[Rfam]
RNA sequence: AGCUCUAUGAUCGAAUGCCGUUUAGGCAAUAUAUGCUAUUCCGAUUAUUAAACUAAAGGAAAAUAUAUUUGAAUAAGAGUU
Numbered sequence: 001a002g003c004u005c006u007a008u009g010a011u012c013g014a015a016u017g018c019c020g021u022u023u024a025g026g027c028a029a030u031a032u033a034u035g036c037u038a039u040u041c042c043g044a045u046u047a048u049u050a051a052a053c054u055a056a057a058g059g060a061a062a063a064u065a066u067a068u069u070u071g072a073a074u075a076a077g078a079g080u081u
Base pairs, nucleotide, nucleotide: 001081002080003079004078005077
About this RNA: Shown here is an 81-nucleotide sequence from Helianthus annuus, a member of the family "Small nucleolar RNA U54". U54 is a C/D box small nucleolar RNA, which acts as a methylation guide for 18S ribosomal RNA in plants. The family is grouped with related families in Rfam's "U54 clan". It is annotated as a C/D-box small nucleolar RNA. Rfam links the family to the GO terms nucleolus and RNA processing. NCBI's taxonomy places the organism under Eukaryota, Viridiplantae, Mesangiospermae, Pentapetalae, Helianthus. On this family, see Chen et al., Nucleic Acids Res 2003: "The high diversity of snoRNAs in plants: identification and comparative study of 120 snoRNA genes from Oryza sativa".